[Rfam]
RNA sequence: GGAGCAUCGAUGAUGAGUUAAUCCAAAAUGUCAUCCUUGCACUAUGAUUUUUCCCGUGAAGAAAUAAAUUGGGGAAGGUUUUGCUCUCUGAGAUGCUC
Numbered sequence: 001g002g003a004g005c006a007u008c009g010a011u012g013a014u015g016a017g018u019u020a021a022u023c024c025a026a027a028a029u030g031u032c033a034u035c036c037u038u039g040c041a042c043u044a045u046g047a048u049u050u051u052u053c054c055c056g057u058g059a060a061g062a063a064a065u066a067a068a069u070u071g072g073g074g075a076a077g078g079u080u081u082u083g084c085u086c087u088c089u090g091a092g093a094u095g096c097u098c
Base pairs, nucleotide, nucleotide: 002098003097004096005095006094007093008092
Small nucleolar RNA snoR26: a 98-nucleotide RNA sequence from Rhodamnia argentea. Gene Ontology terms of the family: nucleolus and RNA processing. The literature on the family includes a 2001 paper in RNA by Brown et al., "Multiple snoRNA gene clusters from Arabidopsis". The family's consensus secondary structure was predicted with WAR. Lineage of the source: Eukaryota > Viridiplantae > rosids > Myrtoideae > Rhodamnia.